[Rfam]
RNA sequence: ACUCAACACUAACAAAUUAAAAUGAGUGAAUCUUCGUUUCUAAAGCAAACUGCCCUGAGCAGGUCCUUGAACAGCGAGUUAACUCAAAACUUGUCUUCACGAGUUU
Numbered sequence: 001a002c003u004c005a006a007c008a009c010u011a012a013c014a015a016a017u018u019a020a021a022a023u024g025a026g027u028g029a030a031u032c033u034u035c036g037u038u039u040c041u042a043a044a045g046c047a048a049a050c051u052g053c054c055c056u057g058a059g060c061a062g063g064u065c066c067u068u069g070a071a072c073a074g075c076g077a078g079u080u081a082a083c084u085c086a087a088a089a090c091u092u093g094u095c096u097u098c099a100c101g102a103g104u105u106u
Stems, first nucleotide, its partner, number of pairs: 023086005034077005043068003050062004